[Rfam]
RNA sequence: UGGGCGGUCAACUGGCGCGGGCCUGGCGGAACGGGGCGGCGCAAGGAGACCGCGAGGCGACCGGGAGCGGCUGGGACCCCGGCGGCGCGCCCCUCGGCCGGGCGGGGAGCCGCGCCAGUCGGAGUCCCAGGCCGCGCGCGGCCUGCCUCGCUCUCAGCGUCCAUCUGUCCGGAGUGCAGCCAGCGGACAUGACCGAUCCACCAGGGGCGCCGCCGCCGCCGGCGCUCGCAGGCCGCGGGUGAAGAAGGUUCGUUCCCGCUCGACGCAGAGCGAGAAGGUGACCCAGGCCGAGGAAGCGCCCCGGGCCAAGGAGGAGACCCGGGCGGAAGAGGUGGCACCGACUGGAGAGGUGACCCAAACCCAGGAAAUG
Numbered sequence: 001u002g003g004g005c006g007g008u009c010a011a012c013u014g015g016c017g018c019g020g021g022c023c024u025g026g027c028g029g030a031a032c033g034g035g036g037c038g039g040c041g042c043a044a045g046g047a048g049a050c051c052g053c054g055a056g057g058c059g060a061c062c063g064g065g066a067g068c069g070g071c072u073g074g075g076a077c078c079c080c081g082g083c084g085g086c087g088c089g090c091c092c093c094u095c096g097g098c099c100g101g102g103c104g105g106g107g108a109g110c111c112g113c114g115c116c117a118g119u120c121g122g123a124g125u126c127c128c129a130g131g132c133c134g135c136g137c138g139c140g141g142c143c144u145g146c147c148u149c150g151c152u153c154u155c156a157g158c159g160u161c162c163a164u165c166u167g168u169c170c171g172g173a174g175u176g177c178a179g180c181c182a183g184c185g186g187a188c189a190u191g192a193c194c195g196a197u198c199c200a201c202c203a204g205g206g207g208c209g210c211c212g213c214c215g216c217c218g219c220c221g222g223c224g225c226u227c228g229c230a231g232g233c234c235g236c237g238g239g240u241g242a243a244g245a246a247g248g249u250u251c252g253u254u255c256c257c258g259c260u261c262g263a264c265g266c267a268g269a270g271c272g273a274g275a276a277g278g279u280g281a282c283c284c285a286g287g288c289c290g291a292g293g294a295a296g297c298g299c300c301c302c303g304g305g306c307c308a309a310g311g312a313g314g315a316g317a318c319c320c321g322g323g324c325g326g327a328a329g330a331g332g333u334g335g336c337a338c339c340g341a342c343u344g345g346a347g348a349g350g351u352g353a354c355c356c357a358a359a360c361c362c363a364g365g366a367a368a369u370g
Base pairs, nucleotide, nucleotide: 021103022102023101024100025099026098027097038093039092041090042089045051046050061082062081063080064079065078068075144352145351146350147349148348149347166189167188168187169186170185171184205227206226207225208224209223210222211221212220257272258271259270260269261268
Bag-1 internal ribosome entry site (IRES): a 370-nucleotide RNA sequence from Marmota monax. Rfam links the family to the GO term ribosome binding. This family represents the bag-1 internal ribosome entry site (IRES). The family's consensus secondary structure was predicted with PFOLD. The match comes from Rfam's covariance-model search (284 bits). On this family, see Coldwell et al., Oncogene 2001: "The p36 isoform of BAG-1 is translated by internal ribosome entry following heat shock".